[Rfam]
RNA sequence: UGACCGUCACAACGGCUUCCUGGCGUGACGGCGUAACCUUCAACGGAGCA
Numbered sequence: 001u002g003a004c005c006g007u008c009a010c011a012a013c014g015g016c017u018u019c020c021u022g023g024c025g026u027g028a029c030g031g032c033g034u035a036a037c038c039u040u041c042a043a044c045g046g047a048g049c050a
Stems, first nucleotide, its partner, number of pairs: 004031007013022002015049003019046002
The record is a 50-nucleotide RNA from Paracoccus limosus, which matches "SAM/SAH riboswitch aptamer" in Rfam.
Taxonomically the source falls in Paracoccus (Bacteria, Pseudomonadota, Alphaproteobacteria, Paracoccaceae).
The match comes from Rfam's covariance-model search (62 bits).